Rfam assigns this 130-nucleotide RNA sequence from Brassica oleracea to the family "MIR9555 microRNA precursor family". The base pairs follow the family's consensus structure, which was predicted with RNAalifold. Its family is annotated with RISC complex and miRNA-mediated post-transcriptional gene silencing in the Gene Ontology. NCBI's taxonomy places the organism under Eukaryota, Mesangiospermae, rosids, Brassicaceae, Brassica oleracea. A search with the family's covariance model found it, with a score of 136 bits. The family has 2 seed sequences and 42 matches in Rfam 15.1.
RNA sequence: UUAUAUAUGCGUGUGUAAUUACGGAGUUCUAAGCUUUACGGAAAACCCAACCGAAGGUUUCUUAUUUAAGAAAUUUUCGGUUGGAUUUUCCGUAAAACUUAGAACUCCGCAAUUACACACGCAUAUAUAA
Numbered sequence: 001u002u003a004u005a006u007a008u009g010c011g012u013g014u015g016u017a018a019u020u021a022c023g024g025a026g027u028u029c030u031a032a033g034c035u036u037u038a039c040g041g042a043a044a045a046c047c048c049a050a051c052c053g054a055a056g057g058u059u060u061c062u063u064a065u066u067u068a069a070g071a072a073a074u075u076u077u078c079g080g081u082u083g084g085a086u087u088u089u090c091c092g093u094a095a096a097a098c099u100u101a102g103a104a105c106u107c108c109g110c111a112a113u114u115a116c117a118c119a120c121g122c123a124u125a126u127a128u129a130a
Stems, first nucleotide, its partner, number of pairs: 001130020022109004027104007035096007070089007